Record summary:
tRNA: a 72-nucleotide RNA from Clostridium fungisolvens. Lineage of the source: Bacteria > Bacillati > Bacillota > Eubacteriales > Clostridium.
[Rfam]
RNA sequence: GCGGUAAUAACUCAACGGCAGAGUGUCACCUUCCCAAGGUGAAGGCUGCGGGUUCAAAUCCCGUUUGCCGCU
Numbered sequence: 001g002c003g004g005u006a007a008u009a010a011c012u013c014a015a016c017g018g019c020a021g022a023g024u025g026u027c028a029c030c031u032u033c034c035c036a037a038g039g040u041g042a043a044g045g046c047u048g049c050g051g052g053u054u055c056a057a058a059u060c061c062c063g064u065u066u067g068c069c070g071c072u
Stems, first nucleotide, its partner, number of pairs: 001071007010024004026042005048064005